[Rfam]
RNA sequence: UCAGGGGCAACUCUGAAUCUGAAGGAAGCAGCAGGCAAACUCUCGGUUCGAGGUACACGAACCGUAUACGAGGCGACGACCCGGUGGGCGAGAAGGCACGAAGAUUCAAAGCCCAAUGUCAUUCGGACCGAGUCGGCGUAUAUGCGGCGAAUAUACGAGAGGAAAGUUACGCGUC
Numbered sequence: 001u002c003a004g005g006g007g008c009a010a011c012u013c014u015g016a017a018u019c020u021g022a023a024g025g026a027a028g029c030a031g032c033a034g035g036c037a038a039a040c041u042c043u044c045g046g047u048u049c050g051a052g053g054u055a056c057a058c059g060a061a062c063c064g065u066a067u068a069c070g071a072g073g074c075g076a077c078g079a080c081c082c083g084g085u086g087g088g089c090g091a092g093a094a095g096g097c098a099c100g101a102a103g104a105u106u107c108a109a110a111g112c113c114c115a116a117u118g119u120c121a122u123u124c125g126g127a128c129c130g131a132g133u134c135g136g137c138g139u140a141u142a143u144g145c146g147g148c149g150a151a152u153a154u155a156c157g158a159g160a161g162g163a164a165a166g167u168u169a170c171g172c173g174u175c
Base pairs, nucleotide, nucleotide: 001016002015003014004013005012006011028175031172032171035167036166040161041160042159043158044157045156046152047151048150049149050148062147063146064145065144066143067142073139074138075137077135078134079133080132082130083129086114087113088112089111092107093106094105